This 144-nucleotide RNA from Amborella trichopoda belongs to the Rfam family "small nucleolar RNA snoR134". Gene Ontology terms of the family: nucleolus and RNA processing. Pairs were carried over by alignment from the consensus structure, which was predicted with RNAalifold. The match comes from Rfam's covariance-model search (97 bits).
[Rfam]
RNA sequence: UCGCACGAUGCAAACCCCGGGCUUCUCUUAUAUGUUUUCAUGAAGAUGAAAGCCCCAAUGCCCGUGCAAUAUGAAUCAGCUGUUGAGUGUUGCAGGUUGGCCGAUCUAUCGGUCUAUACCUGUGUCAAAGCAACAACGACAUCU
Numbered sequence: 001u002c003g004c005a006c007g008a009u010g011c012a013a014a015c016c017c018c019g020g021g022c023u024u025c026u027c028u029u030a031u032a033u034g035u036u037u038u039c040a041u042g043a044a045g046a047u048g049a050a051a052g053c054c055c056c057a058a059u060g061c062c063c064g065u066g067c068a069a070u071a072u073g074a075a076u077c078a079g080c081u082g083u084u085g086a087g088u089g090u091u092g093c094a095g096g097u098u099g100g101c102c103g104a105u106c107u108a109u110c111g112g113u114c115u116a117u118a119c120c121u122g123u124g125u126c127a128a129a130g131c132a133a134c135a136a137c138g139a140c141a142u143c144u
Base pairs, nucleotide, nucleotide: 003067004066005065006064007063010061011060019055020054021053022052023051024049025048026046027045028044079137081135082134083133084132085131088127089126091124092123093122094121095120096119099114100113101112